[Rfam]
RNA sequence: GCAGAAAAAGGCAAACUUAUUGAAAAGUAAGGACGCAAAGUUUCGGGUCUAAGGUAUCUACGCUAAGAUGGCCGGGCUGCCUGAA
Numbered sequence: 001g002c003a004g005a006a007a008a009a010g011g012c013a014a015a016c017u018u019a020u021u022g023a024a025a026a027g028u029a030a031g032g033a034c035g036c037a038a039a040g041u042u043u044c045g046g047g048u049c050u051a052a053g054g055u056a057u058c059u060a061c062g063c064u065a066a067g068a069u070g071g072c073c074g075g076g077c078u079g080c081c082u083g084a085a
Stems, first nucleotide, its partner, number of pairs: 003082002011036002016031006034071001039078004044074003047069003

The record is an 85-nucleotide RNA sequence from Peribacillus psychrosaccharolyticus, which matches "c-di-GMP-I-GGC riboswitch aptamer" in Rfam.
The family's consensus secondary structure is taken from published work.
Taxonomically the source falls in Peribacillus (Bacteria, Bacilli, Caryophanales, Bacillaceae).
Gene Ontology term of the family: cyclic-di-GMP binding.
The match comes from Rfam's covariance-model search (65 bits).